[Rfam]
RNA: Ma3 gene ribosomal frameshift signal
Organism: Phyllostomus discolor
Nucleotides: 059
Base pairs, nucleotide, nucleotide: 014043015042016041017040018039019038021037022036023035024034028058030056032054
Number, partner (000 for none) and nucleotide at each position: 001000g002000g003000g004000u005000g006000a007000a008000g009000g010000g011000u012000g013000g014043u015042g016041g017040g018039c019038u020000g021037g022036g023035c024034g025000g026000g027000u028058g029000a030056g031000c032054c033000a034024c035023g036022c037021c038019a039018g040017c041016c042015c043014a044000g045000a046000g047000a048000c049000g050000g051000g052000c053000a054032g055000a056030c057000c058028c059000a